[Rfam]
Nucleotides: 367
Base pairs, nucleotide, nucleotide: 001363002362003361004360005359006358007357008356009355011352013330014329015328016327017326018325019324021039022038023037024036025035026034027033044350045349046348048347049346050345051344052343053223054222055221056220062265067218068217069216071215072214073087074086075085076084077083088102089100090099091098092097103213104212108211109210110207111206112205124154125153126150127149128148131147132146133144134143135142136141162180163179164178165177166176167175182202183200184199185198186197187196188195189194227287228286229285238276239275241273242272256270258268259267294313295312296311297310298309299308300307301306
Number, partner (000 for none) and nucleotide at each position: 001363a002362u003361g004360a005359g006358u007357u008356a009355g010000c011352g012000u013330g014329g015328u016327g017326g018325u019324u020000g021039c022038g023037g024036g025035a026034g027033u028000c029000u030000g031000c032000c033027a034026c035025u036024c037023c038022u039021g040000a041000g042000g043000a044350a045349a046348g047000u048347c049346c050345g051344g052343g053223c054222u055221u056220c057000c058000g059000a060000a061000a062265g063000a064000c065000c066000a067218a068217g069216c070000u071215u072214g073087c074086u075085g076084g077083g078000u079000a080000a081000c082000g083077c084076c085075c086074a087073g088102u089100g090099c091098g092097g093000g094000u095000g096000a097092c098091c099090g100089c101000g102088a103213g104212g105000a106000a107000a108211g109210u110207g111206c112205c113000a114000c115000a116000g117000a118000a119000a120000u121000a122000a123000a124154c125153c126150g127149c128148c129000g130000a131147u132146g133144g134143a135142g136141g137000g138000a139000a140000a141136c142135c143134u144133c145000a146132c147131a148128g149127g150126c151000a152000a153125g154124g155000g156000u157000g158000c159000a160000a161000c162180g163179g164178u165177g166176c167175g168000g169000u170000a171000a172000g173000a174000g175167c176166g177165c178164a179163c180162c181000a182202g183200c184199a185198a186197c187196a188195u189194c190000g191000a192000g193000a194189g195188a196187u197186g198185u199184u200183g201000g202182c203000u204000c205112g206111g207110u208000a209000a210109a211108c212104c213103c214072c215071g216069g217068c218067u219000g220056g221055a222054a223053g224000c225000a226000a227287g228286g229285u230000g231000u232000g233000c234000u235000a236000g237000c238276g239275c240000u241273a242272a243000g244000g245000a246000a247000c248000c249000a250000g251000g252000g253000u254000u255000g256270g257000u258268c259267u260000u261000u262000u263000c264000c265062c266000c267259a268258g269000u270256u271000c272242u273241u274000u275239g276238c277000u278000a279000g280000c281000c282000a283000g284000a285229g286228c287227c288000g289000c290000u291000a292000g293000a294313g295312g296311c297310a298309c299308u300307u301306g302000g303000u304000a305000a306301c307300a308299a309298g310297u311296g312295u313294c314000c315000c316000a317000g318000a319000u320000a321000g322000a323000u324019a325018a326017c327016c328015a329014c330013c331000c332000u333000u334000u335000g336000a337000a338000c339000a340000g341000a342000a343052c344051c345050c346049g347048g348046c349045u350044u351000a352011c353000g354000u355009c356008u357007a358006a359005c360004u361003c362002a363001u364000u365000c366000a367000u

The family of this 367-nucleotide RNA sequence from Thermosynechococcus vestitus is "Bacterial RNase P class A". The sequence is in the family's curated seed alignment. Taxonomically the source falls in Thermosynechococcus vestitus (Bacteria, Cyanobacteriota, Cyanophyceae, Thermosynechococcaceae).